[Rfam]
Selenocysteine transfer RNA: a 94-nucleotide RNA from Spiroplasma apis. Taxonomically the source falls in Spiroplasma apis (Bacteria, Mollicutes, Spiroplasmataceae, Spiroplasma). The literature on the family includes a 2000 paper in FEBS Lett by Mizutani and Goto, "Eukaryotic selenocysteine tRNA has the 9/4 secondary structure". A search with the family's covariance model found it, with a score of 50 bits.
RNA sequence: GGAAAGGGUUGGGUCGCUGGUGCGCCCACUAGCCUCCGAAGCUAUGUUAAGAGUUUUGAAAACUUUUUGGUAUGUUCGAUUCGUACACCUUUCC
Dot-bracket structure: (((((((....((.(((....))).))((((((.......)))).)).(((((..........)))))..((((.......))))..)))))))
Numbered sequence: 001g002g003a004a005a006g007g008g009u010u011g012g013g014u015c016g017c018u019g020g021u022g023c024g025c026c027c028a029c030u031a032g033c034c035u036c037c038g039a040a041g042c043u044a045u046g047u048u049a050a051g052a053g054u055u056u057u058g059a060a061a062a063c064u065u066u067u068u069g070g071u072a073u074g075u076u077c078g079a080u081u082c083g084u085a086c087a088c089c090u091u092u093c094c
Stems, first nucleotide, its partner, number of pairs: 001094007012027002015024003028047002030044004049068005071085004